[Rfam]
RNA sequence: GUGCUAAAGCUGGUACAUUGGAACCAAAUCAACUCCUCAAUGGAUUUGGUCCCCUUCAACCAGCUGUAGCAU
Numbered sequence: 001g002u003g004c005u006a007a008a009g010c011u012g013g014u015a016c017a018u019u020g021g022a023a024c025c026a027a028a029u030c031a032a033c034u035c036c037u038c039a040a041u042g043g044a045u046u047u048g049g050u051c052c053c054c055u056u057c058a059a060c061c062a063g064c065u066g067u068a069g070c071a072u
Base pairs, nucleotide, nucleotide: 003070004069005068006067008065009064010063011062012061013060014059017056020052021051022050024049025048026047027046028045029044030043